Shown here is a 125-nucleotide sequence from Trabulsiella odontotermitis, a member of the family "RtT RNA". From the family's description: This family represents a bacterial cis-regulatory element known as RtT RNA. The exact function of RtT is unknown although it is thought that it may be involved in changing the cellular response in relation to amino acid starvation. The organism belongs to Trabulsiella, within Bacteria.
[Rfam]
RNA sequence: GCUGUCUGCAAAUCGUCAGGAUGAGAACCUGCUGCAGGUUCGGGUCGAACGUAGUGAGACAACGGAGCCGCUUGCGGCGACGGCCCGAAGGGCGAGCGAAGCGAGUCAUCCUGCACGACCCACCA
Numbered sequence: 001g002c003u004g005u006c007u008g009c010a011a012a013u014c015g016u017c018a019g020g021a022u023g024a025g026a027a028c029c030u031g032c033u034g035c036a037g038g039u040u041c042g043g044g045u046c047g048a049a050c051g052u053a054g055u056g057a058g059a060c061a062a063c064g065g066a067g068c069c070g071c072u073u074g075c076g077g078c079g080a081c082g083g084c085c086c087g088a089a090g091g092g093c094g095a096g097c098g099a100a101g102c103g104a105g106u107c108a109u110c111c112u113g114c115a116c117g118a119c120c121c122a123c124c125a
Base pairs, nucleotide, nucleotide: 015116016115017113018112019111020110022108032094039089040088041087042086046056047055063082064081069079070078071077